[Rfam]
RNA sequence: CCCCUGCUUUUCCUCCCUGAGCAGGCGUCUUGCCGUGACAGCGGUAGACGGUUUGACCCCCAGCGCGGUGCGCUGGGGGUCUUUUUAU
Numbered sequence: 001c002c003c004c005u006g007c008u009u010u011u012c013c014u015c016c017c018u019g020a021g022c023a024g025g026c027g028u029c030u031u032g033c034c035g036u037g038a039c040a041g042c043g044g045u046a047g048a049c050g051g052u053u054u055g056a057c058c059c060c061c062a063g064c065g066c067g068g069u070g071c072g073c074u075g076g077g078g079g080u081c082u083u084u085u086u087a088u
Base pairs, nucleotide, nucleotide: 003025004024005023006022007021008020027049028048029047030046033044034043035042056080057079058078059077060076061075062074063073064072065071066070